[Rfam]
RNA: RT-14 RNA
RNA sequence: CUCUACCCCCGCGUCAGAUGCCGCGGCCCCACGGGGCGGCGGUCAGUACAAGGGUAUAAAGGGGCUUGCUUCCUUGCCGGAUUGACCCGGAAAAAAAUAAAAGCGCCGCGGAAGCCGCAAGUAGCCAGAGGGCGAACGCCGCCACACGCGG
Numbered sequence: 001c002u003c004u005a006c007c008c009c010c011g012c013g014u015c016a017g018a019u020g021c022c023g024c025g026g027c028c029c030c031a032c033g034g035g036g037c038g039g040c041g042g043u044c045a046g047u048a049c050a051a052g053g054g055u056a057u058a059a060a061g062g063g064g065c066u067u068g069c070u071u072c073c074u075u076g077c078c079g080g081a082u083u084g085a086c087c088c089g090g091a092a093a094a095a096a097a098u099a100a101a102a103g104c105g106c107c108g109c110g111g112a113a114g115c116c117g118c119a120a121g122u123a124g125c126c127a128g129a130g131g132g133c134g135a136a137c138g139c140c141g142c143c144a145c146a147c148g149c150g151g
Stems, first nucleotide, its partner, number of pairs: 004056005013049002020043005026037003077090003106151005114142002117139002124133002